[Rfam]
RNA sequence: GGCAAUGAGGAAUGAAUCCAAUGCUGAGCAAAGGCAAUGAUUGACCCCAGAGUGGCCGAGC
Dot-bracket structure: .((...((........))....)).....................................
Small nucleolar RNA sR46: a 61-nucleotide RNA sequence from Pyrococcus abyssi.
For this family Rfam cites "Homologs of small nucleolar RNAs in Archaea" (Omer et al., Science, 2000).
The source organism's lineage runs through Archaea, Methanobacteriota, Thermococcaceae, Pyrococcus and Pyrococcus abyssi.
Pairs were carried over by alignment from the consensus structure, which was predicted with WAR.
Its family is annotated with nucleolus and RNA processing in the Gene Ontology.
It is one of the family's seed sequences.
Rfam classes the family as a C/D-box small nucleolar RNA.